tRNA: an 85-nucleotide RNA sequence from Candidatus Methanohalarchaeum thermophilum. The source organism's lineage runs through Archaea, Methanobacteriati, Methanobacteriota, Methanonatronarchaeales and Candidatus Methanohalarchaeum. The match comes from Rfam's covariance-model search (49 bits). The family's RNA type in Rfam is transfer RNA.
RNA sequence: GCGGGGGUUGCCGAGCUAGGCCAAAGGCGGGAGACUCAAGAUCUCCUCCCGUAGGGGUCCAGGGGUUCGAAUCCCCUCCCCCGCA
Numbered sequence: 001g002c003g004g005g006g007g008u009u010g011c012c013g014a015g016c017u018a019g020g021c022c023a024a025a026g027g028c029g030g031g032a033g034a035c036u037c038a039a040g041a042u043c044u045c046c047u048c049c050c051g052u053a054g055g056g057g058u059c060c061a062g063g064g065g066u067u068c069g070a071a072u073c074c075c076c077u078c079c080c081c082c083g084c085a
Stems, first nucleotide, its partner, number of pairs: 001084007010028003030046005061077005